[Rfam]
RNA sequence: UGGCUGAUGACGAUACAAAUUAUCUUAGCGGAUUUCUCUGAGACCAUGUGUUUCAUGAUCCGAGAUGUGCUAUUUGUUACACACACUGAAGCCA
Numbered sequence: 001u002g003g004c005u006g007a008u009g010a011c012g013a014u015a016c017a018a019a020u021u022a023u024c025u026u027a028g029c030g031g032a033u034u035u036c037u038c039u040g041a042g043a044c045c046a047u048g049u050g051u052u053u054c055a056u057g058a059u060c061c062g063a064g065a066u067g068u069g070c071u072a073u074u075u076g077u078u079a080c081a082c083a084c085a086c087u088g089a090a091g092c093c094a
Stems, first nucleotide, its partner, number of pairs: 001094005